Shown here is an 83-nucleotide RNA from Nonomuraea glycinis, a member of the family "ZMP/ZTP riboswitch aptamer (pfl RNA motif)".
RNA sequence: CAAAGAUGACGCGACUGGCGCAUUGGGUGGGAUCGACCACCGGGGAGCGGAAGGAGCGGAGGCCGUGCGCCUGGGUCUUCGCA
Numbered sequence: 001c002a003a004a005g006a007u008g009a010c011g012c013g014a015c016u017g018g019c020g021c022a023u024u025g026g027g028u029g030g031g032a033u034c035g036a037c038c039a040c041c042g043g044g045g046a047g048c049g050g051a052a053g054g055a056g057c058g059g060a061g062g063c064c065g066u067g068c069g070c071c072u073g074g075g076u077c078u079u080c081g082c083a
Stems, first nucleotide, its partner, number of pairs: 007052001010049003015044002017071005027040004060078005